[Rfam]
RNA sequence: CUUCAAUACUAUCUAGUAAUUCUAAUAG
Numbered sequence: 001c002u003u004c005a006a007u008a009c010u011a012u013c014u015a016g017u018a019a020u021u022c023u024a025a026u027a028g
Base pairs, nucleotide, nucleotide: 007018008017009016010015

The record is a 28-nucleotide RNA from Crocosphaera chwakensis, which matches "CRISPR RNA direct repeat element" in Rfam. The base pairs follow the family's consensus structure, which was predicted with WAR. Taxonomically the source falls in Crocosphaera chwakensis (Bacteria, Cyanophyceae, Aphanothecaceae, Crocosphaera). Rfam's curators put it in the seed alignment. Rfam 15.1 lists 24 matches to the family in 12 species. Its family is annotated with defense response in the Gene Ontology.